[Rfam]
RNA sequence: GCGGGCUUGGAAUCAUGAUGCUGUGGGCCCGCAUCAGCGCGUUCUAGCGAGUGAUCACGGGGAUCUCCAUACACUCGCCGGUAUAGCCGAACUGGUACGAAAGUAGGCCGUCGGGGGACACUCGCCAUUGCCCCGGCGCUCUGAAUUUAAUAAGCCCAGUUCGCUGCACGCCGUGGAGGGGUGAGACUUGUUGGAAGUCUCAGAAGGUGCAGACGCCG
Numbered sequence: 001g002c003g004g005g006c007u008u009g010g011a012a013u014c015a016u017g018a019u020g021c022u023g024u025g026g027g028c029c030c031g032c033a034u035c036a037g038c039g040c041g042u043u044c045u046a047g048c049g050a051g052u053g054a055u056c057a058c059g060g061g062g063a064u065c066u067c068c069a070u071a072c073a074c075u076c077g078c079c080g081g082u083a084u085a086g087c088c089g090a091a092c093u094g095g096u097a098c099g100a101a102a103g104u105a106g107g108c109c110g111u112c113g114g115g116g117g118a119c120a121c122u123c124g125c126c127a128u129u130g131c132c133c134c135g136g137c138g139c140u141c142u143g144a145a146u147u148u149a150a151u152a153a154g155c156c157c158a159g160u161u162c163g164c165u166g167c168a169c170g171c172c173g174u175g176g177a178g179g180g181g182u183g184a185g186a187c188u189u190g191u192u193g194g195a196a197g198u199c200u201c202a203g204a205a206g207g208u209g210c211a212g213a214c215g216c217c218g
Stems, first nucleotide, its partner, number of pairs: 001032007047078006066177005088163008098154001164212006182202006

Overview:
Rfam assigns this 218-nucleotide sequence to the family "PAGEV RNA". Rfam's curators put it in the seed alignment. Rfam classes the family as a small RNA.